[Rfam]
RNA: RAGATH-18 RNA
RNA sequence: GCUGUGGACUGUACAAGGACCUGCGAGUAGCAAUCCGAAAGGAUGCGAAAGCAUACAGGAUGAAGCAGCAA
Numbered sequence: 001g002c003u004g005u006g007g008a009c010u011g012u013a014c015a016a017g018g019a020c021c022u023g024c025g026a027g028u029a030g031c032a033a034u035c036c037g038a039a040a041g042g043a044u045g046c047g048a049a050a051g052c053a054u055a056c057a058g059g060a061u062g063a064a065g066c067a068g069c070a071a
Stems, first nucleotide, its partner, number of pairs: 001069005009058005022053003030046003034042002